[Rfam]
RNA sequence: ACCUACGUUUUGCGAUGUUUGAGAAACAUCGUGAAAGAUUUUUAUUCCACGACGUUAGUGAAACAUCGCUCAAUCAAACUACGUUUCGCGACGUUUGGGUAUACGUCGU
Numbered sequence: 001a002c003c004u005a006c007g008u009u010u011u012g013c014g015a016u017g018u019u020u021g022a023g024a025a026a027c028a029u030c031g032u033g034a035a036a037g038a039u040u041u042u043u044a045u046u047c048c049a050c051g052a053c054g055u056u057a058g059u060g061a062a063a064c065a066u067c068g069c070u071c072a073a074u075c076a077a078a079c080u081a082c083g084u085u086u087c088g089c090g091a092c093g094u095u096u097g098g099g100u101a102u103a104c105g106u107c108g109u
Stems, first nucleotide, its partner, number of pairs: 006021002012032007043057002050068003054064002082097002088109007
A member of the RNA family "Fusobacteriales-1 RNA" from Elaeis guineensis, 109 nucleotides long. The family's RNA type in Rfam is cis-regulatory element. The family has 13 seed sequences and 28 matches in Rfam 15.1. Taxonomically the source falls in Elaeis (Eukaryota, Viridiplantae, Liliopsida, Arecaceae).